[Rfam]
RNA: TPP riboswitch aptamer (THI element)
Organism: Glycomyces buryatensis
RNA sequence: AUAACAACCCACGGGAGUCCGAUGCAUCGGGCUGAGAGGGGACUUGGUAGUCCCGACCGUCGAACCUGAUCCAGAUCAUGCUGGCGCAGGGAGAAGGAGCUAUGCAGGCUA
Number, nucleotide and partner (000 for none) at each position: 001a000002u000003a000004a000005c000006a000007a000008c097009c096010c000011a060012c059013g058014g057015g000016a000017g032018u031019c030020c029021g028022a000023u000024g000025c000026a000027u000028c021029g020030g019031g018032c017033u000034g000035a000036g000037a000038g000039g054040g053041g052042a051043c050044u000045u000046g000047g000048u000049a000050g043051u042052c041053c040054c039055g000056a000057c014058c013059g012060u011061c000062g000063a000064a000065c090066c089067u088068g087069a000070u000071c084072c083073a082074g081075a000076u000077c000078a000079u000080g000081c074082u073083g072084g071085c000086g000087c068088a067089g066090g065091g000092a000093g000094a000095a000096g009097g008098a000099g000100c000101u000102a000103u000104g000105c000106a000107g000108g000109c000110u000111a000